[Rfam]
RNA sequence: UGCGUUCUUAACGGAGCAUUAACCAUUCCCGGGCAUCCUCGCAGGCGUCCAGGUCUCCUCUGGAUGUCGAGUGGUUCUGAAGCCCACUCUGUUUGACGCUUCCCUGUUAGACUUCACGAGCCGCCUCGCGCGGCUCGAUUUUU
Numbered sequence: 001u002g003c004g005u006u007c008u009u010a011a012c013g014g015a016g017c018a019u020u021a022a023c024c025a026u027u028c029c030c031g032g033g034c035a036u037c038c039u040c041g042c043a044g045g046c047g048u049c050c051a052g053g054u055c056u057c058c059u060c061u062g063g064a065u066g067u068c069g070a071g072u073g074g075u076u077c078u079g080a081a082g083c084c085c086a087c088u089c090u091g092u093u094u095g096a097c098g099c100u101u102c103c104c105u106g107u108u109a110g111a112c113u114u115c116a117c118g119a120g121c122c123g124c125c126u127c128g129c130g131c132g133g134c135u136c137g138a139u140u141u142u143u
Stems, first nucleotide, its partner, number of pairs: 001043004005014002016036001020035001023032002047065006069089006095108004117137008
Shown here is a 143-nucleotide RNA from Microvirga flocculans, a member of the family "Alphaproteobacterial sRNA BjrC1505". It is annotated as a small RNA. The match comes from Rfam's covariance-model search (77 bits). NCBI's taxonomy places the organism under Bacteria, Pseudomonadati, Pseudomonadota, Methylobacteriaceae, Microvirga.